[Rfam]
This 192-nucleotide sequence from Brenneria rubrifaciens belongs to the Rfam family "FMN riboswitch aptamer (RFN element)". The source organism's lineage runs through Bacteria, Pseudomonadati, Pseudomonadota, Gammaproteobacteria and Brenneria.

RNA sequence: GCUUAUUCUCAGGGCGGGGUGUAAUUCCCCACCGGCGGUAAACCAGUCGUAUAUAACGUAUAUGAACGGGUAAGCCCGCGAGCGCUCAUUGUUUGAUUUACCGGCGAAACCAUCGGGUUUUUCAACAUGAGGUCAGCAGAUCCGGUGUAAUUCCGGGGCCGACGGUGAUAGUCCGGAUGGGAGAGAGUAACG
Dot-bracket structure: ..((((((((......(((.......))).[[((((((...................................[[))))..((....................................................))...(((((.......)))))]])).(((.....]]))).......))))))))..